Plastid-psbA-1 3UTR RNA: a 109-nucleotide RNA from Paphiopedilum dianthum. Pairs were carried over by alignment from the consensus structure, which was predicted with LocARNA. On this family, see Richter et al., Plant Commun 2023: "Retrograde signaling in plants: A critical review focusing on the GUN pathway and beyond".
RNA sequence: UGUCGAAGCUCCCUCUACAAAUGGAUAAUACUUUUGUAUACAUUUAUAUGUAUAUGAAUUUUUGAAGGUAAAAAAUCCCCAUAUCUUGUAAGAUAUGGGGAUUUUUUAC
Numbered sequence: 001u002g003u004c005g006a007a008g009c010u011c012c013c014u015c016u017a018c019a020a021a022u023g024g025a026u027a028a029u030a031c032u033u034u035u036g037u038a039u040a041c042a043u044u045u046a047u048a049u050g051u052a053u054a055u056g057a058a059u060u061u062u063u064g065a066a067g068g069u070a071a072a073a074a075a076u077c078c079c080c081a082u083a084u085c086u087u088g089u090a091a092g093a094u095a096u097g098g099g100g101a102u103u104u105u106u107u108a109c
Base pairs, nucleotide, nucleotide: 010025011024012023014021068109069108070107071106072105073104074103075102076101077100079098080097081096083094084093085092086091